[Rfam]
The record is a 249-nucleotide part of an RNA from Chloroherpeton thalassium, which matches "Bacterial large subunit ribosomal RNA" in Rfam.
RNA sequence: GGAAAUUUGAGAGGGCUUGUCCCUAGUACGAGAGGACCGGGACGAACAGACCUCUAGUGCACCAGUUGUCACGCCAGUGGCAUCGCUGGGUAGCUAUGUCUGGUUAGGAUAAGCGCUGAAAGCAUCUAAGUGCGAAACCUGCCUCAAGAUGAGAUUUCCCUAUCAGACACCAAGAAGAUGACUUGGUUGAUAGGCUACAGGUGUAAGCGCAGUAAUGUGUUUAGCUGAGUAGUACUAAUUAGUCGAUUG
Numbered sequence: 001g002g003a004a005a006u007u008u009g010a011g012a013g014g015g016c017u018u019g020u021c022c023c024u025a026g027u028a029c030g031a032g033a034g035g036a037c038c039g040g041g042a043c044g045a046a047c048a049g050a051c052c053u054c055u056a057g058u059g060c061a062c063c064a065g066u067u068g069u070c071a072c073g074c075c076a077g078u079g080g081c082a083u084c085g086c087u088g089g090g091u092a093g094c095u096a097u098g099u100c101u102g103g104u105u106a107g108g109a110u111a112a113g114c115g116c117u118g119a120a121a122g123c124a125u126c127u128a129a130g131u132g133c134g135a136a137a138c139c140u141g142c143c144u145c146a147a148g149a150u151g152a153g154a155u156u157u158c159c160c161u162a163u164c165a166g167a168c169a170c171c172a173a174g175a176a177g178a179u180g181a182c183u184u185g186g187u188u189g190a191u192a193g194g195c196u197a198c199a200g201g202u203g204u205a206a207g208c209g210c211a212g213u214a215a216u217g218u219g220u221u222u223a224g225c226u227g228a229g230u231a232g233u234a235c236u237a238a239u240u241a242g243u244c245g246a247u248u249g
Stems, first nucleotide, its partner, number of pairs: 001159008011145004017045007047102005055096003062089005067082006106140003113133005163246001166244003170186005191237003194233005200226002207220005
Dot-bracket structure: ((((((((..((((..(((((((...............))))))).(((((...(((....(((((((((((....))))))..)))))....))).)))))...(((....(((((...........)))))....))).))))......))))))))...(..(((.(((((.......)))))....((((((((.((.....(((((....)))))....))..))))).)))....))).)...

Lineage of the source: Bacteria > Chlorobiota > Chloroherpetonaceae > Chloroherpeton > Chloroherpeton thalassium. The base pairs follow the family's consensus structure, which is taken from published work.